A member of the RNA family "Guanidine-II riboswitch aptamer (mini-ykkC)" from Paraburkholderia solisilvae, 45 nucleotides long. The family's consensus secondary structure is taken from published work. The source organism's lineage runs through Bacteria, Pseudomonadati, Betaproteobacteria, Burkholderiaceae and Paraburkholderia.
[Rfam]
RNA sequence: UCGUAAGGACGGCCUUGCGCGUUCGAUUUCAACGGGGACGACCCC
Numbered sequence: 001u002c003g004u005a006a007g008g009a010c011g012g013c014c015u016u017g018c019g020c021g022u023u024c025g026a027u028u029u030c031a032a033c034g035g036g037g038a039c040g041a042c043c044c045c
Stems, first nucleotide, its partner, number of pairs: 002019007034045004
It scores 35 bits against the family's covariance model.